Annotation: A member of the RNA family "Glm Y RNA activator of glmS mRNA" from Enterobacillus tribolii, 153 nucleotides long. On this family, see Rivas et al., Curr Biol 2001: "Computational identification of noncoding RNAs in E. coli by comparative genomics". About the family: This family consists of a number of bacterial RNA genes of around 167 bases in length. The tke1 RNA gene is present in Escherichia coli, Shigella flexneri, Yersinia pestis and Salmonella species where it is found between the yfhK and purL genes. Taxonomically the source falls in Enterobacillus (Bacteria, Pseudomonadota, Gammaproteobacteria, Enterobacterales). By type it is a small RNA.
RNA sequence: AGUUGCUCAUUCACCUCCUUAUGUCAGCCAAUUGCGCUACAUAAAACAUCGAAUGACGCCAGAAGUAAGGUGCCUAUCGUCCAGCUUAACCGAUAACAGUCGCGCAAGCGCUUUAUCAAACAUCGGGCGACACGUUGAGUGAGGCACCGCCUU
Dot-bracket structure: ....((((((((......((((((.(((.......)))))))))......)))))).)).........(((((((..(((((.........(((((................))))).......))))).(((.....)))))))))).....